[Rfam]
RNA: Bacterial small signal recognition particle RNA
Organism: Cutibacterium acnes
RNA sequence: GUUCCCCGUGCGGCGGCACCUGACUGAACUCCCCCAGGACCGAGAGGUAGCAAGGGUAGGUUGGCUCUACCGGGUGCGCGGGGAGCCCUUUU
Dot-bracket structure: (((((((((((..(((.(.((((((.....(((.....(((....))).....)))..))))))...).))).)..))))))))))......
Numbered sequence: 001g002u003u004c005c006c007c008g009u010g011c012g013g014c015g016g017c018a019c020c021u022g023a024c025u026g027a028a029c030u031c032c033c034c035c036a037g038g039a040c041c042g043a044g045a046g047g048u049a050g051c052a053a054g055g056g057u058a059g060g061u062u063g064g065c066u067c068u069a070c071c072g073g074g075u076g077c078g079c080g081g082g083g084a085g086c087c088c089u090u091u092u
Stems, first nucleotide, its partner, number of pairs: 001086010011074001014072003018068001020064006031056003039048003